[Rfam]
RNA sequence: GUGGCUUCUUUAUAAUUUUUAGAUCCAAAAAUUUGAACCAAAUUAAUGUGAUUUUUUUGUGAUGGAAAGAAGCCUGAACAGAAAUGUUCCCCUCGCUAUCCACUGCUUCAAUUUGAUGGGGCAUUUGGACGUCGGGGAACUACAUCC
Numbered sequence: 001g002u003g004g005c006u007u008c009u010u011u012a013u014a015a016u017u018u019u020u021a022g023a024u025c026c027a028a029a030a031a032u033u034u035g036a037a038c039c040a041a042a043u044u045a046a047u048g049u050g051a052u053u054u055u056u057u058u059g060u061g062a063u064g065g066a067a068a069g070a071a072g073c074c075u076g077a078a079c080a081g082a083a084a085u086g087u088u089c090c091c092c093u094c095g096c097u098a099u100c101c102a103c104u105g106c107u108u109c110a111a112u113u114u115g116a117u118g119g120g121g122c123a124u125u126u127g128g129a130c131g132u133c134g135g136g137g138a139a140c141u142a143c144a145u146c147c
Stems, first nucleotide, its partner, number of pairs: 002076001003074003008069004013064001016062002019059001027057005033051002037049002086140007094131002099129004108119003